[Rfam]
RNA sequence: AGCAAGACACUGCGCUCAGGCUUUCGAUACGUCGGGAGCAGCCUGGCGUCAGACCCAUAAAUCUUGGUGGGGAAUCGUUACGGAUCCGUGUGCAUUGACGGGUCCACACGGCGCAGGU
Numbered sequence: 001a002g003c004a005a006g007a008c009a010c011u012g013c014g015c016u017c018a019g020g021c022u023u024u025c026g027a028u029a030c031g032u033c034g035g036g037a038g039c040a041g042c043c044u045g046g047c048g049u050c051a052g053a054c055c056c057a058u059a060a061a062u063c064u065u066g067g068u069g070g071g072g073a074a075u076c077g078u079u080a081c082g083g084a085u086c087c088g089u090g091u092g093c094a095u096u097g098a099c100g101g102g103u104c105c106a107c108a109c110g111g112c113g114c115a116g117g118u
Base pairs, nucleotide, nucleotide: 007118008117010116011115012114013113014112015111016110025077026076027075028074029049030048031047032046033045034044035043054071055070056069057068058067060065082105083104084103086101087100088099089098
Dot-bracket structure: ......((.(((((((........(((((((((((.......)))))))....(((((.(....).)))))..))))....(((.((((........)))).)))....)))))))))
The family of this 118-nucleotide RNA sequence from bacterium 1xD42-67 is "DUF3268 RNA". It scores 86 bits against the family's covariance model.